[Rfam]
RNA sequence: ACCUCCUGCUGACGUGAUCGUCUUCUCACCCUUCACGUAAGCGGGUGGAAAACAACAAGGCCCCCACGCGGUCAACGCGCGUGGGGGCCUUGU
Numbered sequence: 001a002c003c004u005c006c007u008g009c010u011g012a013c014g015u016g017a018u019c020g021u022c023u024u025c026u027c028a029c030c031c032u033u034c035a036c037g038u039a040a041g042c043g044g045g046u047g048g049a050a051a052a053c054a055a056c057a058a059g060g061c062c063c064c065c066a067c068g069c070g071g072u073c074a075a076c077g078c079g080c081g082u083g084g085g086g087g088c089c090u091u092g093u
Base pairs, nucleotide, nucleotide: 002047005045006044007043008042009041010040012038014036015035016034017033020030055093056092057091058090059089060088061087062086063085064084065083066082067081068080069079070078
This 93-nucleotide sequence from Streptomyces zagrosensis belongs to the Rfam family "sodF sRNA". The source organism's lineage runs through Bacteria, Bacillati, Actinomycetota, Kitasatosporales and Streptomyces. By type it is a small RNA. The match comes from Rfam's covariance-model search (65 bits).